[Rfam]
RNA sequence: AGAGUACUGGCAGGGGAGACACCAUGAUCACGAAGGUGGUUUUCCCAGGGCGAGGCUCAUCCAUUGCACUCCGGCUGUGCUGACCCCUGCGAUUUCCCCAAAUGUGGGAAACUCGACUGCAUAAUUUGUGGUAGUGGGGGACUGUGUCCGCACUCUCCCCUG
Numbered sequence: 001a002g003a004g005u006a007c008u009g010g011c012a013g014g015g016g017a018g019a020c021a022c023c024a025u026g027a028u029c030a031c032g033a034a035g036g037u038g039g040u041u042u043u044c045c046c047a048g049g050g051c052g053a054g055g056c057u058c059a060u061c062c063a064u065u066g067c068a069c070u071c072c073g074g075c076u077g078u079g080c081u082g083a084c085c086c087c088u089g090c091g092a093u094u095u096c097c098c099c100a101a102a103u104g105u106g107g108g109a110a111a112c113u114c115g116a117c118u119g120c121a122u123a124a125u126u127u128g129u130g131g132u133a134g135u136g137g138g139g140g141a142c143u144g145u146g147u148c149c150g151c152a153c154u155c156u157c158c159c160c161u162g
Stems, first nucleotide, its partner, number of pairs: 010120004014046006021040005047088004052084001054081003058077002061074002090115003093111003097107002136161006144153003
U1 spliceosomal RNA: a 162-nucleotide RNA sequence from Pipistrellus kuhlii. The source organism's lineage runs through Eukaryota, Dipnotetrapodomorpha, Mammalia, Chiroptera and Pipistrellus. Rfam classes the family as a spliceosomal small nuclear RNA. U1 is a small nuclear RNA (snRNA) component of the spliceosome (involved in pre-mRNA splicing). Rfam links the family to the GO terms pre-mRNA 5'-splice site binding, mRNA 5'-splice site recognition and U1 snRNP.